A member of the RNA family "6S / SsrS RNA" from bacterium E08(2017), 175 nucleotides long. E. coli 6S RNA was the first non coding RNA to be sequenced, but its function was unknown until recently. It consists of 184 nucleotides that fold into an extended hairpin structure with a large single-stranded internal bulge. The 6S RNA specifically associates with RNA polymerase holoenzyme containing the sigma70 specificity factor. This interaction represses expression from a sigma70-dependent promoter during stationary phase. 6S RNA homologs have recently been identified in most bacterial genomes. A reference for the family is Elkina et al. (2017), "6S RNA in Rhodobacter sphaeroides: 6S RNA and pRNA transcript levels peak in late exponential phase and gene deletion causes a high salt stress phenotype", RNA Biol. Rfam classes the family as a non-coding RNA gene.
[Rfam]
RNA sequence: AACACCCUGCUGUGUUCGCUUACAGGCAGAUAUCUCUUACCGUUUCCGAUAUCUCGGGAGCUUGAUUACGAAGCGGAUUCGAGACCCUUCGGGGUACGAUGAAUCUUCGGCUAGAGCACCCACCUCAUCUUUGGGGUUAAGAGAUUGAAGCCUCUACGAUCUUGGUGGGGUGUUU
Numbered sequence: 001a002a003c004a005c006c007c008u009g010c011u012g013u014g015u016u017c018g019c020u021u022a023c024a025g026g027c028a029g030a031u032a033u034c035u036c037u038u039a040c041c042g043u044u045u046c047c048g049a050u051a052u053c054u055c056g057g058g059a060g061c062u063u064g065a066u067u068a069c070g071a072a073g074c075g076g077a078u079u080c081g082a083g084a085c086c087c088u089u090c091g092g093g094g095u096a097c098g099a100u101g102a103a104u105c106u107u108c109g110g111c112u113a114g115a116g117c118a119c120c121c122a123c124c125u126c127a128u129c130u131u132u133g134g135g136g137u138u139a140a141g142a143g144a145u146u147g148a149a150g151c152c153u154c155u156a157c158g159a160u161c162u163u164g165g166u167g168g169g170g171u172g173u174u175u
Base pairs, nucleotide, nucleotide: 002173003172004171005170006169007168008167009166010165011164012162014160015159017158018157032145033144034143035142037140038139039138040136041135056121057120058119060117061116062115063114065112069109070108071107072106073105080098081097085094086093